A member of the RNA family "Burkholderia RNA 7 (anti-hemB)" from Ramlibacter agri, 86 nucleotides long.
The match comes from Rfam's covariance-model search (63 bits).
Rfam's curators write: This RNA motif was identified by computational search in b-proteobacteria Burkholderia.
It is annotated as a small RNA.
RNA sequence: UCCCCGCUUUUCCUCCCUGAGCGGGCGCCUUGAUGUGUGACAGCAAAAAGGCUUCGCACCCCGGCCGGUGGCCGGGGUCUUUUUUU
Numbered sequence: 001u002c003c004c005c006g007c008u009u010u011u012c013c014u015c016c017c018u019g020a021g022c023g024g025g026c027g028c029c030u031u032g033a034u035g036u037g038u039g040a041c042a043g044c045a046a047a048a049a050g051g052c053u054u055c056g057c058a059c060c061c062c063g064g065c066c067g068g069u070g071g072c073c074g075g076g077g078u079c080u081u082u083u084u085u086u
Base pairs, nucleotide, nucleotide: 003025004024005023006022007021008020027052028051029050030049031048058078059077060076061075062074063073064072065071
A reference for the family is Ramos et al. (2013), "Experimental identification of small non-coding regulatory RNAs in the opportunistic human pathogen Burkholderia cenocepacia J2315", Genomics.